[Rfam]
RNA: UnaL2 LINE 3' element
Organism: Coregonus sp. 'balchen'
RNA sequence: CCCUGAUGUCCUUGUAAGUCGCUCUGGAUAAGAGCGUCUGCUAAAUGAUGUAAA
Number, nucleotide and partner (000 for none) at each position: 001c000002c000003c000004u000005g000006a000007u000008g000009u000010c000011c000012u000013u043014g041015u040016a039017a000018g000019u000020c036021g035022c034023u033024c032025u031026g000027g000028a000029u000030a000031a025032g024033a023034g022035c021036g020037u000038c000039u016040g015041c014042u000043a013044a000045a000046u000047g000048a000049u000050g000051u000052a000053a000054a000